[Rfam]
Rfam assigns this 59-nucleotide RNA from Dactylosporangium sucinum to the family "msiK RNA". The match comes from Rfam's covariance-model search (46 bits). The organism belongs to Dactylosporangium, within Bacteria. By type it is a cis-regulatory element. Pairs were carried over by alignment from the consensus structure, which is taken from published work. Rfam 15.1 lists 1,374 matches to the family in 1,364 species.

RNA sequence: GCCCAAGGAGCUUCUACUCGGAUCGUCCGGCACGUUCCUGCCGGUGGAAGGUGGCACCC
Numbered sequence: 001g002c003c004c005a006a007g008g009a010g011c012u013u014c015u016a017c018u019c020g021g022a023u024c025g026u027c028c029g030g031c032a033c034g035u036u037c038c039u040g041c042c043g044g045u046g047g048a049a050g051g052u053g054g055c056a057c058c059c
Base pairs, nucleotide, nucleotide: 011050012049013048014047015046016045027044028043029042030041031040032039